[Rfam]
RNA: Bacterial large subunit ribosomal RNA, nucleotides 1278 to 1642
Organism: Coconut lethal yellowing phytoplasma
Nucleotides: 365
Stems, first nucleotide, its partner, number of pairs: 006024006025363004034342003039323002044068006053061002075319004080111002085106003089102001091100003115132005135315011146300002151295004159282004165275003170269002172266003175194005199254004206247003211234007219227002329338002345357004
Number, partner (000 for none) and nucleotide at each position: 001000g002000a003000a004000a005000a006024g007023a008022u009021a010020g011019g012000u013000g014000a015000g016000a017000a018000u019011c020010c021009u022008a023007u024006c025363c026362g027361u028360c029000g030000a031000a032000a033000a034342c035341c036340c037000a038000a039323g040322g041000u042000u043000u044068c045067c046066a047065g048064g049063g050000g051000c052000a053061g054060g055000u056000u057000c058000g059000u060054c061053c062000u063049c064048c065047c066046u067045g068044g069000g070000u071000u072000a073000g074000u075319c076318a077317g078316g079000u080111c081110c082000u083000a084000a085106g086105a087104u088000g089102a090000g091100g092099a093098a094000g095000a096000a097000a098093u099092u100091c101000g102089u103000a104087g105086u106085c107000g108000a109000u110081g111080g112000c113000a114000a115132g116131c117130a118129g119128g120000c121000u122000a123000a124000a125000a126000u127000u128119c129118c130117u131116g132115c133000a134000c135315u136314a137313a138312g139311a140310a141309a142308a143307c144306a145305a146300c147299u148000g149000a150000u151295g152294g153293a154292g155000g156000g157000a158000c159282a160281a161280a162279g163000a164000a165275g166274g167273a168000u169000a170269a171268g172266c173265a174264c175194a176193c177192c178191u179190u180000u181000u182000a183000u184000u185000g186000g187000a188000u189000u190179a191178a192177g193176g194175u195000a196000g197000a198000a199254a200253a201252a202251c203000c204000g205000a206247g207246u208245u209000u210000g211234a212233g213232a214231a215230a216229a217228u218000a219227g220226g221000c222000a223000a224000a225000u226220c227219c228217g229216u230215u231214u232213u233212c234211u235000u236000a237000u238000u239000c240000c241000a242000a243000a244000a245208a246207a247206u248000g249000a250000g251202g252201u253200u254199u255000g256000a257000a258000g259000g260000u261000a262000a263000c264174g265173u266172g267000a268171c269170u270000g271000a272000u273167u274166u275165c276000a277000u278000a279162c280161u281160u282159u283000c284000a285000a286000g287000a288000a289000a290000a291000g292154c293153u294152u295151c296000u297000a298000g299147g300146g301000u302000u303000a304000a305145u306144u307143g308142u309141u310140u311139u312138u313137u314136u315135a316078c317077c318076u319075g320000u321000a322040c323039c324000g325000u326000a327000a328000a329338c330337c331000g332000a333000c334000a335000c336000a337330g338329g339000u340036g341035g342034g343000a344000a345357g346356g347355u348354a349000g350000a351000g352000u353000a354348u355347a356346c357345u358000a359000a360028g361027a362026c363025g364000c365000g